[Rfam]
RNA sequence: GUUUGGGUGAUGACUUAAGCAUUUGUCGGAUACCCCUUCACUCAUGUUCUGAGUGACAAAAGCAAGUCUGACAAAC
Numbered sequence: 001g002u003u004u005g006g007g008u009g010a011u012g013a014c015u016u017a018a019g020c021a022u023u024u025g026u027c028g029g030a031u032a033c034c035c036c037u038u039c040a041c042u043c044a045u046g047u048u049c050u051g052a053g054u055g056a057c058a059a060a061a062g063c064a065a066g067u068c069u070g071a072c073a074a075a076c
Stems, first nucleotide, its partner, number of pairs: 001076005
A member of the RNA family "Small nucleolar RNA SNORD101" from Nycticryphes semicollaris, 76 nucleotides long. The match comes from Rfam's covariance-model search (77 bits). Taxonomically the source falls in Nycticryphes (Eukaryota, Craniata, Vertebrata, Tetrapoda). Clan: SNORD101 clan. For this family Rfam cites "Identification of 13 novel human modification guide RNAs" (Vitali et al., Nucleic Acids Res, 2003). Gene Ontology terms of the family: nucleolus and RNA processing.